[Rfam]
RNA: terC RNA
RNA sequence: AGGCGGGACCGGGCCCCUCUGGCGGCGGCUUUCCAACGAAAGCGCCGUGAUGUCGGACCGCAUCG
Numbered sequence: 001a002g003g004c005g006g007g008a009c010c011g012g013g014c015c016c017c018u019c020u021g022g023c024g025g026c027g028g029c030u031u032u033c034c035a036a037c038g039a040a041a042g043c044g045c046c047g048u049g050a051u052g053u054c055g056g057a058c059c060g061c062a063u064c065g
Base pairs, nucleotide, nucleotide: 006059007058009056010055011054012053022048023047024046025045026044027043